[Rfam]
RNA sequence: GAACAGAUAAGAGGAGCAAGGCGAAUGAGUACGGAAUGGGAGCCCAGGGAGCAGCGAUCAUUCCGGAAAGGUCAACUUGCCGAAGCGCCUGUUUUCCUAAAAGCAGGCUGCUGGGCUGCCGCCAAACAGGCUGCAGACUGUCACUGCGGAUAAAAUAAUGAAGCGGUGGAGCACUUUUCGAGCG
Numbered sequence: 001g002a003a004c005a006g007a008u009a010a011g012a013g014g015a016g017c018a019a020g021g022c023g024a025a026u027g028a029g030u031a032c033g034g035a036a037u038g039g040g041a042g043c044c045c046a047g048g049g050a051g052c053a054g055c056g057a058u059c060a061u062u063c064c065g066g067a068a069a070g071g072u073c074a075a076c077u078u079g080c081c082g083a084a085g086c087g088c089c090u091g092u093u094u095u096c097c098u099a100a101a102a103g104c105a106g107g108c109u110g111c112u113g114g115g116c117u118g119c120c121g122c123c124a125a126a127c128a129g130g131c132u133g134c135a136g137a138c139u140g141u142c143a144c145u146g147c148g149g150a151u152a153a154a155a156u157a158a159u160g161a162a163g164c165g166g167u168g169g170a171g172c173a174c175u176u177u178u179c180g181a182g183c184g
Stems, first nucleotide, its partner, number of pairs: 006179002009176003016080005023073002032065008084112003087108008113139002116136004121131003141169007
The record is a 184-nucleotide RNA sequence from Sporolactobacillus putidus, which matches "Lysine riboswitch aptamer" in Rfam.
Riboswitches are metabolite binding domains within certain messenger RNAs that serve as precision sensors for their corresponding targets.
The organism belongs to Sporolactobacillus, within Bacteria.